[Rfam]
RNA sequence: ACUAUGAUCCUAUGGAUCCUCUAUACGCACACGUUCGGACGGCCGAACCGCUAGCGU
Numbered sequence: 001a002c003u004a005u006g007a008u009c010c011u012a013u014g015g016a017u018c019c020u021c022u023a024u025a026c027g028c029a030c031a032c033g034u035u036c037g038g039a040c041g042g043c044c045g046a047a048c049c050g051c052u053a054g055c056g057u
Base pairs, nucleotide, nucleotide: 006018007017008016009015025057026056027055028054033048034047035046036045037044038043
The family of this 57-nucleotide RNA sequence is "MDR-NUDIX RNA".